[Rfam]
RNA sequence: AAACCCGUGCCAUUCCAACAUGAGGAAUACCCAUGU
Numbered sequence: 001a002a003a004c005c006c007g008u009g010c011c012a013u014u015c016c017a018a019c020a021u022g023a024g025g026a027a028u029a030c031c032c033a034u035g036u
Base pairs, nucleotide, nucleotide: 018036019035020034021033022032024031025030
Background: This 36-nucleotide RNA sequence from Emesvirus zinderi belongs to the Rfam family "Bacteriophage MS2 operator hairpin". Pairs were carried over by alignment from the consensus structure, which is taken from published work. On this family, see Grahn et al., Nucleic Acids Res 2000: "Deletion of a single hydrogen bonding atom from the MS2 RNA operator leads to dramatic rearrangements at the RNA-coat protein interface".